The record is a 500-nucleotide part of an RNA from Candidatus Methanomassiliicoccus intestinalis, which matches "Archaeal small subunit ribosomal RNA" in Rfam. NCBI's taxonomy places the organism under Archaea, Methanobacteriati, Methanomassiliicoccales, Methanomassiliicoccus, Candidatus Methanomassiliicoccus intestinalis. The family's consensus secondary structure is taken from published work. Its Rfam clan is "SSU clan".
RNA sequence: AUUCCGGUUGAUCCUGCCGGCGGCCACCGCUAUUGGAAUGCGAUUAAGACAUGCGAGUCGAGAGACAUUUGGUCUCGGCGGACCGCUCAGUAACACGUGGACAACAUGCCCUAAGGUGGGGGAUAAUCUCGGGAAACUGAGGAUAAUACCCCAUAGGUCUAAUCUGCUGGAAUGCUUUUAGGCCGAAAACUCCGGUGCCUUAGGAUUGGUCUGCGGUCUAUCAGGUUGUAGUGGGUGUAAUGGACCCACUAGCCCGUGACGGAUAUGGGCCUUGAGAGAGGGAGCCCAGAGAUGGACUCUGAGACAUGAGUCCAGGCCCUACGGGGCGCAGCAGUCGCGAAAACUUCGCAAUGGGGGAAACCCCGACGAGGGAAUUCCAAGUGCCAGCAUUUAAUGUUGGCUGUUCUUUUGUCUAAAAAACAUGAGAAGUAAGGGGCGGGUAAGACGGGUGCCAGCCGCCGCGGUAAUACCCGCGCCCCAAGUGGUGGUCGAUAUUAUUG
Number, nucleotide and partner (000 for none) at each position: 001a000002u000003u000004c020005c019006g018007g017008u016009u000010g000011a000012u000013c000014c000015u000016g008017c007018c006019g005020g004021c000022g490023g489024c488025c487026a486027c485028c484029g483030c482031u481032a000033u380034u379035g378036g377037a376038a375039u374040g000041c372042g338043a000044u000045u000046a000047a000048g336049a335050c334051a000052u333053g332054c331055g000056a000057g079058u078059c077060g000061a000062g076063a075064g074065a073066c072067a000068u000069u000070u000071g000072g066073u065074c064075u063076c062077g059078g058079c057080g000081g000082a000083c000084c000085g000086c291087u290088c289089a000090g000091u000092a000093a000094c000095a000096c215097g214098u213099g212100g211101a210102c209103a000104a000105c208106a207107u000108g000109c000110c204111c203112u202113a201114a200115g199116g198117u000118g152119g151120g150121g149122g000123a000124u000125a000126a000127u142128c141129u140130c139131g138132g137133g000134a000135a000136a000137c132138u131139g130140a129141g128142g127143a000144u000145a000146a000147u000148a000149c121150c120151c119152c118153a000154u000155a000156g000157g183158u182159c181160u180161a179162a178163u000164c000165u000166g175167c174168u000169g000170g000171a000172a000173u000174g167175c166176u000177u000178u162179u161180a160181g159182g158183c157184c000185g000186a000187a000188a000189a196190c195191u000192c000193c000194g000195g190196u189197g000198c116199c115200u114201u113202a112203g111204g110205a000206u000207u106208g105209g102210u101211c100212u099213g098214c097215g096216g000217u263218c262219u261220a000221u000222c000223a000224g254225g253226u252227u000228g000229u251230a250231g249232u248233g247234g246235g245236u244237g000238u000239a000240a000241u000242g000243g000244a236245c235246c234247c233248a232249c231250u230251a229252g226253c225254c224255c000256g000257u000258g000259a000260c000261g219262g218263a217264u000265a000266u288267g287268g286269g285270c281271c280272u279273u278274g000275a000276g000277a000278g273279a272280g271281g270282g000283a000284g000285c269286c268287c267288a266289g088290a087291g086292a000293u314294g313295g312296a311297c310298u309299c000300u000301g000302a000303g000304a000305c000306a000307u000308g000309a298310g297311u296312c295313c294314a293315g000316g327317c326318c325319c324320u000321a000322c000323g000324g319325g318326g317327c316328g000329c000330a000331g054332c053333a052334g050335u049336c048337g000338c042339g000340a000341a000342a000343a000344c370345u000346u369347c368348g367349c000350a000351a000352u365353g364354g363355g362356g361357g000358a000359a000360a000361c356362c355363c354364c353365g352366a000367c348368g347369a346370g344371g000372g041373a000374a039375u038376u037377c036378c035379a034380a033381g000382u000383g401384c400385c399386a398387g397388c396389a395390u394391u000392u000393a000394a390395u389396g388397u387398u386399g385400g384401c383402u000403g000404u000405u000406c426407u425408u424409u000410u422411g421412u420413c000414u000415a000416a000417a000418a000419a000420a412421c411422a410423u000424g408425a407426g406427a000428a000429g000430u000431a000432a000433g479434g478435g477436g476437c475438g474439g000440g000441u000442a000443a000444g000445a000446c473447g472448g471449g470450u000451g000452c000453c000454a000455g462456c461457c000458g000459c000460c000461g456462c455463g000464g000465u000466a000467a000468u000469a000470c449471c448472c447473g446474c438475g437476c436477c435478c434479c433480a000481a031482g030483u029484g028485g027486u026487g025488g024489u023490c022491g000492a000493u000494a000495u000496u000497a000498u000499u000500g000